[Rfam]
RNA sequence: CAUUUCUUUCGGGGCAAGGUGAAAUUCCUAACCGGCGGUGUGUACUACAAUGUACGAGCCCGCGACCUGCACAUAUUGAGUUAUGUGUGGCUGAUGUAGAUGAGCUACAGCCGACAGUUAAAGUCUGGAUGGGAGAAAGAAAAU
Numbered sequence: 001c002a003u004u005u006c007u008u009u010c011g012g013g014g015c016a017a018g019g020u021g022a023a024a025u026u027c028c029u030a031a032c033c034g035g036c037g038g039u040g041u042g043u044a045c046u047a048c049a050a051u052g053u054a055c056g057a058g059c060c061c062g063c064g065a066c067c068u069g070c071a072c073a074u075a076u077u078g079a080g081u082u083a084u085g086u087g088u089g090g091c092u093g094a095u096g097u098a099g100a101u102g103a104g105c106u107a108c109a110g111c112c113g114a115c116a117g118u119u120a121a122a123g124u125c126u127g128g129a130u131g132g133g134a135g136a137a138a139g140a141a142a143a144u
Base pairs, nucleotide, nucleotide: 003142004141005140006139007138008137009136010135017029018028019027031124032123033113034112035063036062037061038060058111059110067090068089069088070087095109096108097107098106099105115127116126117125

The record is a 144-nucleotide sequence from Abyssicoccus albus, which matches "FMN riboswitch aptamer (RFN element)" in Rfam. The match comes from Rfam's covariance-model search (101 bits).